[Rfam]
RNA sequence: UCGGAACCCGACCUGGCACAACAUUCUGCAGCAAUGUUGUCCGACGACCUGCAGUGUCUGUGGUCGGGUUCCAA
Numbered sequence: 001u002c003g004g005a006a007c008c009c010g011a012c013c014u015g016g017c018a019c020a021a022c023a024u025u026c027u028g029c030a031g032c033a034a035u036g037u038u039g040u041c042c043g044a045c046g047a048c049c050u051g052c053a054g055u056g057u058c059u060g061u062g063g064u065c066g067g068g069u070u071c072c073a074a
Stems, first nucleotide, its partner, number of pairs: 001074001003072005009066005020038006046058003